RNA sequence: UUUAAUCUUCGGGGCGGAGUGAAAGUCUCCACCGGCGGUAUAGUCCGCGAACUUUUAUUAGUUGAUUCAGUGAAAUUCUGAAACCGACAGUUAUAGUCUGGAUGGGAGAAGAGCGGU
Dot-bracket structure: ..(..(((((......(((.......))).[[((((((....[[))))..(((......)))...(((((.......)))))]])).(((.....]]))).......)))))..)..